[Rfam]
RNA sequence: AUCUUAUCAAGAGUGGUGGAGGGACUGGCCCUUUGAAACCCGGCAACCGAAAUAUUGAUUCAUUUAUUAAUAUUUUUAUGGUGCUAAUUCCAGCAGCUUUUAGCUGAUAGAUGAGAG
Numbered sequence: 001a002u003c004u005u006a007u008c009a010a011g012a013g014u015g016g017u018g019g020a021g022g023g024a025c026u027g028g029c030c031c032u033u034u035g036a037a038a039c040c041c042g043g044c045a046a047c048c049g050a051a052a053u054a055u056u057g058a059u060u061c062a063u064u065u066a067u068u069a070a071u072a073u074u075u076u077u078a079u080g081g082u083g084c085u086a087a088u089u090c091c092a093g094c095a096g097c098u099u100u101u102a103g104c105u106g107a108u109a110g111a112u113g114a115g116a117g
Stems, first nucleotide, its partner, number of pairs: 002116007013041001015040003021031003025093004042085004047081002049077004089109001094106005
Overview:
This 117-nucleotide RNA from Clostridium puniceum belongs to the Rfam family "SAM riboswitch aptamer (S box leader)". The match comes from Rfam's covariance-model search (88 bits).